Rfam assigns this 80-nucleotide RNA sequence from Anguilla anguilla to the family "mir-365 microRNA precursor family". The family's consensus secondary structure was predicted with RNAalifold.
[Rfam]
RNA sequence: CCGCAGGGAAAAUGAGGGGCUUUUGGGGGCAGUUGUGUCUCACCAUCAUAAUGCCCCUAAAAAUCCUUAUUGCCCUUGCA
Numbered sequence: 001c002c003g004c005a006g007g008g009a010a011a012a013u014g015a016g017g018g019g020c021u022u023u024u025g026g027g028g029g030c031a032g033u034u035g036u037g038u039c040u041c042a043c044c045a046u047c048a049u050a051a052u053g054c055c056c057c058u059a060a061a062a063a064u065c066c067u068u069a070u071u072g073c074c075c076u077u078g079c080a
Base pairs, nucleotide, nucleotide: 015068016067017066018065019064021062022061023060025058026057027056028055029054030053031052034050035049036048037047